[Rfam]
RNA sequence: GGUAUUGUUUGCCCCACGAUCGGCCCCGGAAACCAAUUGUGUUAUGCAACAAUCGUAGA
Numbered sequence: 001g002g003u004a005u006u007g008u009u010u011g012c013c014c015c016a017c018g019a020u021c022g023g024c025c026c027c028g029g030a031a032a033c034c035a036a037u038u039g040u041g042u043u044a045u046g047c048a049a050c051a052a053u054c055g056u057a058g059a
Stems, first nucleotide, its partner, number of pairs: 006057003009052003015041006022034002
Rfam assigns this 59-nucleotide RNA from Aerococcus christensenii to the family "Ribosomal protein L13 leader". Its family is annotated with regulation of gene expression in the Gene Ontology. The base pairs follow the family's consensus structure, which was predicted with CMfinder.